[Rfam]
RNA sequence: UAGUAAGGAUCGAAGGCUAAAUUCGCAACAUCCUGUUGGCAGACUCAAACGCGACGUCCUGUCGCUACGCCCUUUGUGACCUGCGUCCUGCAGG
Dot-bracket structure: ..........(((((((.......((.((...............................)).))...)).)))))...(((((.....)))))
About this RNA: The family of this 94-nucleotide RNA sequence from Bacillus sp. J14TS2 is "Bacillaceae-1 RNA". The base pairs follow the family's consensus structure, which is taken from published work. It scores 46 bits against the family's covariance model.